[Rfam]
RNA sequence: GCCGAUGAGGAUAGAAUCCAAUUUACGAGGUGCAGUGGAGCUGAGACCCUGUUUUCAGGGAGAACCCCUUGGCAGAAACUGCAAUUUCUAUGAAGCUAAUGGAUUUAACUGAGGC
Numbered sequence: 001g002c003c004g005a006u007g008a009g010g011a012u013a014g015a016a017u018c019c020a021a022u023u024u025a026c027g028a029g030g031u032g033c034a035g036u037g038g039a040g041c042u043g044a045g046a047c048c049c050u051g052u053u054u055u056c057a058g059g060g061a062g063a064a065c066c067c068c069u070u071g072g073c074a075g076a077a078a079c080u081g082c083a084a085u086u087u088c089u090a091u092g093a094a095g096c097u098a099a100u101g102g103a104u105u106u107a108a109c110u111g112a113g114g115c
Stems, first nucleotide, its partner, number of pairs: 001115003047060005
Small nucleolar RNA Z278: a 115-nucleotide RNA from Microthlaspi erraticum.
Pairs were carried over by alignment from the consensus structure, which was predicted with PFOLD.
NCBI's taxonomy places the organism under Eukaryota, Streptophytina, Tracheophyta, Coluteocarpeae, Microthlaspi.
The family's RNA type in Rfam is C/D-box small nucleolar RNA.
Its family is annotated with nucleolus and RNA processing in the Gene Ontology.
Rfam's curators write: snoZ278 is a C/D box small nucleolar RNA. Its methylation guide targets have not been reported.